[Rfam]
RNA sequence: AGCUGGUGCACGACGCGGUUCUUCCCAGAUCCGCGGCAGCAGCUGUUCCCCUCUGGAGGUUUUUGACCUUCACACUUACGGGCCGCGGUCUUCACCGACGGCCCUUUUU
Numbered sequence: 001a002g003c004u005g006g007u008g009c010a011c012g013a014c015g016c017g018g019u020u021c022u023u024c025c026c027a028g029a030u031c032c033g034c035g036g037c038a039g040c041a042g043c044u045g046u047u048c049c050c051c052u053c054u055g056g057a058g059g060u061u062u063u064u065g066a067c068c069u070u071c072a073c074a075c076u077u078a079c080g081g082g083c084c085g086c087g088g089u090c091u092u093c094a095c096c097g098a099c100g101g102c103c104c105u106u107u108u109u
Base pairs, nucleotide, nucleotide: 001044002043003042004041005040007038008037009036015034016033017032018031054072055071056070057069058068059067060066080104081103082102083101084100085099086097087096088095089094
A member of the RNA family "Alphaproteobacterial ar15" from Rhizobium sp. NFR07, 109 nucleotides long. The literature on the family includes a 2012 paper in Mol Microbiol by Caswell et al., "Identification of two small regulatory RNAs linked to virulence in Brucella abortus 2308". Gene Ontology term of the family: protein binding. The organism belongs to Rhizobium, within Bacteria. Clan: suhB sRNA clan.